RNA sequence: CUUCCUCUACCGUUAUCCAGUCACUCUGUGGCCAGUUGAGUUGUCUGGCAUUGAAAGAGUAUACAGCAUAAUGGCUCUCACCUCUCUCAUCCAAGACCAUUAUCCUACAUGAGGCUUGUGAUAGCUGUAAAA
Numbered sequence: 001c002u003u004c005c006u007c008u009a010c011c012g013u014u015a016u017c018c019a020g021u022c023a024c025u026c027u028g029u030g031g032c033c034a035g036u037u038g039a040g041u042u043g044u045c046u047g048g049c050a051u052u053g054a055a056a057g058a059g060u061a062u063a064c065a066g067c068a069u070a071a072u073g074g075c076u077c078u079c080a081c082c083u084c085u086c087u088c089a090u091c092c093a094a095g096a097c098c099a100u101u102a103u104c105c106u107a108c109a110u111g112a113g114g115c116u117u118g119u120g121a122u123a124g125c126u127g128u129a130a131a132a
Base pairs, nucleotide, nucleotide: 003061005059006058007057008056011053017048018047019046020045022043023041024040025039026038077124078123086113087112088111089110090109094106095105

A member of the RNA family "Small nucleolar RNA SNORA49" from Coregonus sp. 'balchen', 132 nucleotides long.
Gene Ontology terms of the family: RNA processing and nucleolus.
The organism belongs to Coregonus, within Eukaryota.
The family's consensus secondary structure was predicted with RNAalifold.
The snoRNA ACA49 has no identified RNA target. NB genomic sequence 1-nt different from published.